The record is an 84-nucleotide RNA sequence from Bombyx mori, which matches "mir-2807 microRNA precursor family" in Rfam. The match comes from Rfam's covariance-model search (91 bits). Rfam links the family to the GO terms miRNA-mediated post-transcriptional gene silencing and RISC complex. Rfam 15.1 lists 5,120 matches to the family in 8 species.

RNA sequence: UUAACUCGAAUUUGUAUGGAGUUGGAACGUUUGCCUAAGUUUACCGCUAAGGGCGCUGUUCCAACUGCAUACAAAUCUUAGUUA
Number, nucleotide and partner (000 for none) at each position: 001u000002u000003a000004a000005c000006u000007c000008g078009a000010a076011u075012u074013u073014g072015u071016a070017u000018g068019g000020a066021g065022u064023u063024g062025g061026a060027a059028c058029g057030u000031u000032u000033g000034c052035c051036u050037a000038a000039g047040u046041u000042u000043a000044c000045c000046g040047c039048u000049a000050a036051g035052g034053g000054c000055g000056c000057u029058g028059u027060u026061c025062c024063a023064a022065c021066u020067g000068c018069a000070u016071a015072c014073a013074a012075a011076u010077c000078u008079u000080a000081g000082u000083u000084a000